Overview:
This 73-nucleotide sequence from Miscanthus lutarioriparius belongs to the Rfam family "Small nucleolar RNA R12". Rfam 15.1 lists 992 matches to the family in 220 species. The match comes from Rfam's covariance-model search (57 bits). It is annotated as a C/D-box small nucleolar RNA. snoR12 is a C/D box small nucleolar RNA, which acts as a methylation guide for 25S ribosomal RNA in plants. snoR12 has been alternatively named snoZ44 in Arabidopsis and snoZ131 in rice. Its family is annotated with RNA processing and nucleolus in the Gene Ontology.
[Rfam]
RNA sequence: UUCUGGAUGAUGAAGAAAAAUCAAUUGGAUUGAUUUUAUAAUAUGAUUCAACAACCAGCUACUUCUGACAAAA
Numbered sequence: 001u002u003c004u005g006g007a008u009g010a011u012g013a014a015g016a017a018a019a020a021u022c023a024a025u026u027g028g029a030u031u032g033a034u035u036u037u038a039u040a041a042u043a044u045g046a047u048u049c050a051a052c053a054a055c056c057a058g059c060u061a062c063u064u065c066u067g068a069c070a071a072a073a
Stems, first nucleotide, its partner, number of pairs: 001073002004070002